The family of this 74-nucleotide RNA sequence from Candidatus Epulonipiscioides gigas is "Glycine riboswitch aptamer".
RNA sequence: AUGAUAUUUGCUGGAGAAAGCAUAUGCUUACCGAUGGGGUAAUUCUCUCAGGUCAAAAGGACAGCAAAUGGAUG
Numbered sequence: 001a002u003g004a005u006a007u008u009u010g011c012u013g014g015a016g017a018a019a020g021c022a023u024a025u026g027c028u029u030a031c032c033g034a035u036g037g038g039g040u041a042a043u044u045c046u047c048u049c050a051g052g053u054c055a056a057a058a059g060g061a062c063a064g065c066a067a068a069u070g071g072a073u074g
Base pairs, nucleotide, nucleotide: 006069007068008067009066010065011064012063013062019028020027021026030053031052032051033049034048037047038046039045
The source organism's lineage runs through Bacteria, Bacillati, Lachnospirales, Lachnospiraceae and Candidatus Epulonipiscioides.
Clan: Glycine riboswitch clan.
Rfam links the family to the GO term glycine biosynthetic process.
The base pairs follow the family's consensus structure.